RNA sequence: UAGUUAUCGGGAGCAGAGUCUUCCAUAACUC
Numbered sequence: 001u002a003g004u005u006a007u008c009g010g011g012a013g014c015a016g017a018g019u020c021u022u023c024c025a026u027a028a029c030u031c
Base pairs, nucleotide, nucleotide: 002030003029004028005027006026007025009024010023011022012021013020014018
RNA: Iron response element II